[Rfam]
RNA sequence: CCGCAUGUUUAUCCAAGAGCUGUGGCUGCACGCAAUAGCUGCAGGUCUCCAACAACAUGCAAGAGCAACGGGAAGGUCUUUGACUGCUGGGCCUCCUCUUUGCCUGUUGCUGUCACUCGCCCCUCCUAUAUAA
Numbered sequence: 001c002c003g004c005a006u007g008u009u010u011a012u013c014c015a016a017g018a019g020c021u022g023u024g025g026c027u028g029c030a031c032g033c034a035a036u037a038g039c040u041g042c043a044g045g046u047c048u049c050c051a052a053c054a055a056c057a058u059g060c061a062a063g064a065g066c067a068a069c070g071g072g073a074a075g076g077u078c079u080u081u082g083a084c085u086g087c088u089g090g091g092c093c094u095c096c097u098c099u100u101u102g103c104c105u106g107u108u109g110c111u112g113u114c115a116c117u118c119g120c121c122c123c124u125c126c127u128a129u130a131u132a133a
Stems, first nucleotide, its partner, number of pairs: 013044001018040006071126003075122002086113002088106004
Record summary: Shown here is a 133-nucleotide RNA from Pelecanus crispus, a member of the family "Small nucleolar RNA SNORA44". NCBI's taxonomy places the organism under Eukaryota, Dipnotetrapodomorpha, Saurischia, Neoaves, Pelecanus. ACA44 is a member of the H/ACA class of snoRNA that guide the sites of modification of uridines to pseudouridines. Rfam classes the family as an H/ACA-box small nucleolar RNA. For this family Rfam cites "RNomics: an experimental approach that identifies 201 candidates for novel, small, non-messenger RNAs in mouse" (Huttenhofer et al., EMBO J, 2001). The family's consensus secondary structure was predicted with PFOLD. Its Rfam clan is "SNORA44 clan". The match comes from Rfam's covariance-model search (81 bits). Its family is annotated with nucleolus and RNA processing in the Gene Ontology.